[Rfam]
RNA sequence: GCGGGGGAGGACGGGAGGGGAGGAGGGCGUGGUUUUAUGCAGCUCCUCACUCCUCUCCUCCCGUCUUCUUCUUCU
Numbered sequence: 001g002c003g004g005g006g007g008a009g010g011a012c013g014g015g016a017g018g019g020g021a022g023g024a025g026g027g028c029g030u031g032g033u034u035u036u037a038u039g040c041a042g043c044u045c046c047u048c049a050c051u052c053c054u055c056u057c058c059u060c061c062c063g064u065c066u067u068c069u070u071c072u073u074c075u
Stems, first nucleotide, its partner, number of pairs: 004071015022055001024054004029050003
This 75-nucleotide sequence from Equus caballus belongs to the Rfam family "mir-483 microRNA precursor family". The sequence is in the family's curated seed alignment. Pairs were carried over by alignment from the consensus structure, which was predicted with RNAalifold. The family has 8 seed sequences and 122 matches in Rfam 15.1.